[Rfam]
The record is an 86-nucleotide sequence from Anaeromicrobium sediminis, which matches "c-di-GMP-I riboswitch aptamer" in Rfam.
Pairs were carried over by alignment from the consensus structure, which is taken from published work.
RNA sequence: UGUUGAUAAAGGCACACUCGUUGAAAGGCGAGGUCGCAAAACUAUGGGUCUAAGGAAACGGAUUCUACGAUCGCCAGGUUACCAGC
Numbered sequence: 001u002g003u004u005g006a007u008a009a010a011g012g013c014a015c016a017c018u019c020g021u022u023g024a025a026a027g028g029c030g031a032g033g034u035c036g037c038a039a040a041a042c043u044a045u046g047g048g049u050c051u052a053a054g055g056a057a058a059c060g061g062a063u064u065c066u067a068c069g070a071u072c073g074c075c076a077g078g079u080u081a082c083c084a085g086c
Stems, first nucleotide, its partner, number of pairs: 012037002017032006040080004045076003048071003055065003